[Rfam]
RNA sequence: UCGAUUGCUCCGGGGAGCCCACGGACGUGGGCUGAGAGGCUGGCCAGUAUCCCGUCGGCGACCCGUAUACCCGAUCGCGGUCAUGCGCGCGUGGGGAGGAUGAAAGAUCGUGUC
Numbered sequence: 001u002c003g004a005u006u007g008c009u010c011c012g013g014g015g016a017g018c019c020c021a022c023g024g025a026c027g028u029g030g031g032c033u034g035a036g037a038g039g040c041u042g043g044c045c046a047g048u049a050u051c052c053c054g055u056c057g058g059c060g061a062c063c064c065g066u067a068u069a070c071c072c073g074a075u076c077g078c079g080g081u082c083a084u085g086c087g088c089g090c091g092u093g094g095g096g097a098g099g100a101u102g103a104a105a106g107a108u109c110g111u112g113u114c
Stems, first nucleotide, its partner, number of pairs: 006102002009099002011065004017032005039059005070095004076089004
A member of the RNA family "TPP riboswitch aptamer (THI element)" from Frankia casuarinae, 114 nucleotides long. The family's consensus secondary structure is taken from published work. Taxonomically the source falls in Frankia (Bacteria, Bacillati, Actinomycetota, Frankiales).